RNA sequence: CGGGCCGUCUGGGCAAUCGCGAGGCACACGUGCUUCGAGGAAAGUCCGGGCUCCACAGCACAGGAUGGUGGAUAACAUCCACUCGGGGUAACCCGCAGGCCAGUGCCACAGAAAGUAAACCGCCGCGGUUCGCCGCGGUAAGGGUGAAAGGGUGGUGUAAGAGACCACCAGCGGGCGCGGUGACGUGCCCGGCUAGGUAAACCCCAUUCGGAGCAAGGUCAAACAGAAUACGCCAUGGUAGGGUAGUGCGCCCGAUCCCCGUCAGCUUCCUUCACGGAGGUGGGGUGCGUAUUCGGGUAGGCUGCUUGAGACGUGCGGCAACGUACGUUCUAGAUAGAUGAUUGCCUCGAAACGCCCCUUCGGGCGGCGUUUUAGACAGAACCCGGCUCAUAGGAUGACCCGUUUC
Number, nucleotide and partner (000 for none) at each position: 001c402002g401003g400004g399005c000006c397007g396008u395009c394010u393011g391012g346013g345014c344015a343016a342017u341018c340019g000020c037021g036022a035023g034024g033025c032026a031027c000028a000029c000030g000031u026032g025033c024034u023035u022036c021037g020038a000039g000040g000041a000042a000043a388044g387045u000046c386047c385048g384049g383050g382051c213052u212053c211054c210055a000056c000057a000058g000059c000060a000061c265062a000063g209064g208065a207066u206067g205068g082069u081070g080071g079072a078073u000074a000075a000076c000077a000078u072079c071080c070081a069082c068083u097084c095085g094086g093087g092088g000089u000090a000091a000092c087093c086094c085095g084096c000097a083098g204099g203100c000101c000102a000103g202104u201105g198106c197107c196108a000109c000110a000111g000112a000113a000114a000115g000116u000117a000118a000119a000120c143121c142122g139123c138124c137125g136126c135127g134128g133129u000130u000131c000132g000133c128134c127135g126136c125137g124138g123139u122140a000141a000142g121143g120144g000145u000146g000147a000148a000149a000150g000151g169152g168153u167154g166155g165156u164157g000158u000159a000160a000161g000162a000163g000164a156165c155166c154167a153168c152169c151170a000171g193172c191173g190174g189175g188176c187177g186178c185179g184180g000181u000182g000183a000184c179185g178186u177187g176188c175189c174190c173191g172192g000193c171194u000195a000196g107197g106198u105199a000200a000201a104202c103203c099204c098205c067206a066207u065208u064209c063210g054211g053212a052213g051214c000215a000216a000217g303218g302219u301220c300221a000222a000223a000224c000225a000226g294227a293228a292229u291230a290231c289232g000233c000234c000235a000236u000237g000238g000239u000240a000241g000242g000243g000244u000245a000246g000247u000248g000249c000250g000251c000252c000253c000254g000255a000256u000257c000258c000259c000260c000261g000262u000263c000264a000265g061266c000267u000268u000269c000270c000271u000272u000273c000274a000275c000276g000277g000278a000279g000280g000281u000282g000283g000284g000285g000286u000287g000288c000289g231290u230291a229292u228293u227294c226295g000296g000297g000298u000299a000300g220301g219302c218303u217304g000305c000306u000307u000308g000309a000310g329311a328312c327313g326314u325315g324316c323317g322318g000319c000320a000321a000322c317323g316324u315325a314326c313327g312328u311329u310330c000331u000332a000333g000334a000335u000336a000337g000338a000339u000340g018341a017342u016343u015344g014345c013346c012347u000348c000349g000350a000351a000352a000353c000354g000355c000356c000357c000358c000359u000360u000361c000362g000363g000364g000365c000366g000367g000368c000369g000370u000371u000372u000373u000374a000375g000376a000377c000378a000379g000380a000381a000382c050383c049384c048385g047386g046387c044388u043389c000390a000391u011392a000393g010394g009395a008396u007397g006398a000399c004400c003401c002402g001403u000404u000405u000406c000
The record is a 406-nucleotide RNA sequence from Rothia mucilaginosa, which matches "Bacterial RNase P class A" in Rfam.
The match comes from Rfam's covariance-model search (296 bits).
Rfam classes the family as a ribozyme.